MIR2118 microRNA precursor family: a 156-nucleotide RNA sequence from Leersia perrieri. Pairs were carried over by alignment from the consensus structure, which was predicted with RNAalifold. The source organism's lineage runs through Eukaryota, Streptophytina, Magnoliopsida, Poaceae and Leersia.
Nucleotides: 156
Base pairs, nucleotide, nucleotide: 009147010146012144015141016140017139021137022136023135026132027131028130029129030128031127032126033125034124035123037121039119040118041117042116043115044114045113046112047111049108050107051106053104055103057101
Number, partner (000 for none) and nucleotide at each position: 001000c002000c003000a004000g005000g006000g007000a008000a009147g010146a011000g012144g013000a014000a015141g016140a017139a018000u019000g020000a021137g022136a023135g024000g025000g026132u027131u028130c029129a030128a031127g032126a033125g034124c035123a036000g037121u038000g039119g040118g041117a042116g043115u044114g045113g046112g047111a048000a049108c050107a051106u052000g053104a054000a055103g056000g057101a058000a059000a060000g061000a062000a063000c064000a065000a066000g067000c068000u069000c070000u071000a072000a073000a074000u075000u076000u077000c078000c079000u080000u081000c082000a083000a084000a085000g086000g087000a088000g089000a090000u091000c092000u093000u094000g095000c096000u097000u098000g099000u100000g101057u102000a103055u104053u105000g106051a107050u108049g109000c110000c111047u112046c113045c114044c115043a116042u117041u118040c119039c120000a121037a122000u123035u124034g125033u126032u127031c128030u129029u130028g131027g132026g133000u134000g135023c136022u137021c138000c139017u140016u141015c142000c143000c144012c145000a146010u147009c148000c149000u150000u151000c152000u153000u154000g155000g156000c